[Rfam]
RNA sequence: CCCUUAACUAUUAAAAGUUUCGUUUUGGUUCCUUAACUUAUUUUUUGGUUUCGUUUUGGUCCCUUAACUUAUUUUUUGGUUUCGUUUUGGUCCCUUAACUCUUCCUCCGUCAACCACUUUGGUCCUUUAUGCUAGGAUGAAUGUAUUAGAGUUAAGGGACCAAAACGAAACCAAAAAAUAAGUUAAGAAACCAAAACAAAACUUUUAAUAGUUAAGGGACCAAAACGAAACCAAAAAGUAAGUUAAGGGAACAAAACGAAACUUUUAAUAGUUAAGGGA
Numbered sequence: 001c002c003c004u005u006a007a008c009u010a011u012u013a014a015a016a017g018u019u020u021c022g023u024u025u026u027g028g029u030u031c032c033u034u035a036a037c038u039u040a041u042u043u044u045u046u047g048g049u050u051u052c053g054u055u056u057u058g059g060u061c062c063c064u065u066a067a068c069u070u071a072u073u074u075u076u077u078g079g080u081u082u083c084g085u086u087u088u089g090g091u092c093c094c095u096u097a098a099c100u101c102u103u104c105c106u107c108c109g110u111c112a113a114c115c116a117c118u119u120u121g122g123u124c125c126u127u128u129a130u131g132c133u134a135g136g137a138u139g140a141a142u143g144u145a146u147u148a149g150a151g152u153u154a155a156g157g158g159a160c161c162a163a164a165a166c167g168a169a170a171c172c173a174a175a176a177a178a179u180a181a182g183u184u185a186a187g188a189a190a191c192c193a194a195a196a197c198a199a200a201a202c203u204u205u206u207a208a209u210a211g212u213u214a215a216g217g218g219a220c221c222a223a224a225a226c227g228a229a230a231c232c233a234a235a236a237a238g239u240a241a242g243u244u245a246a247g248g249g250a251a252c253a254a255a256a257c258g259a260a261a262c263u264u265u266u267a268a269u270a271g272u273u274a275a276g277g278g279a
Stems, first nucleotide, its partner, number of pairs: 002277007023256003027252001029250001031248013045234015
RNA: MIR2655 microRNA precursor family